This 124-nucleotide sequence belongs to the Rfam family "xerDC RNA". Rfam's curators put it in the seed alignment.
RNA sequence: GAUCCGUCGCCGGGCGGAUCACAGGACACCGGCGGAGCCUUCCGCAGCUGAGUUCAGCGGCCUGGUGUCCGCGGUUGCUCACACGAGCAGAGGUCAAAGACCUCCACACCGCAGCGUACUGACC
Number, nucleotide and partner (000 for none) at each position: 001g020002a019003u018004c017005c016006g015007u014008c013009g000010c000011c000012g000013g008014g007015c006016g005017g004018a003019u002020c001021a000022c000023a000024g070025g069026a068027c067028a066029c065030c064031g063032g045033c044034g043035g042036a041037g000038c000039c000040u000041u036042c035043c034044g033045c032046a000047g061048c060049u059050g058051a000052g000053u000054u000055c000056a000057g000058c050059g049060g048061c047062c000063u031064g030065g029066u028067g027068u026069c025070c024071g112072c111073g110074g109075u108076u000077g088078c087079u086080c085081a000082c000083a000084c000085g080086a079087g078088c077089a000090g104091a000092g102093g101094u100095c000096a000097a000098a000099g000100a094101c093102c092103u000104c090105c000106a000107c000108a075109c074110c073111g072112c071113a000114g000115c000116g000117u000118a000119c000120u000121g000122a000123c000124c000